[Rfam]
RNA: permuted transfer-messenger RNA
Organism: Candidatus Tokpelaia sp. JSC189
RNA sequence: GGUAAUAAACUGACGGUGAAAUAAACCUAUUGGACCCGGGGGCAGUACCCGGCGCCUCCACCUCAAGGUGGCUUGUAGGCCACCUUGAGGUGGGGGCGAAAUAGGAUCGACGAAGGCGUAAAGAUCGUUCUUUUACCCGGUAUUGUACCACCGUUAUCGGGCUGUUUUAAAAUAGUUGCAAACGACAACUAUGCGGAGGUUCGUCUCGCUGCUUAA
Numbered sequence: 001g002g003u004a005a006u007a008a009a010c011u012g013a014c015g016g017u018g019a020a021a022u023a024a025a026c027c028u029a030u031u032g033g034a035c036c037c038g039g040g041g042g043c044a045g046u047a048c049c050c051g052g053c054g055c056c057u058c059c060a061c062c063u064c065a066a067g068g069u070g071g072c073u074u075g076u077a078g079g080c081c082a083c084c085u086u087g088a089g090g091u092g093g094g095g096g097c098g099a100a101a102u103a104g105g106a107u108c109g110a111c112g113a114a115g116g117c118g119u120a121a122a123g124a125u126c127g128u129u130c131u132u133u134u135a136c137c138c139g140g141u142a143u144u145g146u147a148c149c150a151c152c153g154u155u156a157u158c159g160g161g162c163u164g165u166u167u168u169a170a171a172a173u174a175g176u177u178g179c180a181a182a183c184g185a186c187a188a189c190u191a192u193g194c195g196g197a198g199g200u201u202c203g204u205c206u207c208g209c210u211g212c213u214u215a216a
Stems, first nucleotide, its partner, number of pairs: 001137005014127004026116003030113003036052005053098009138153004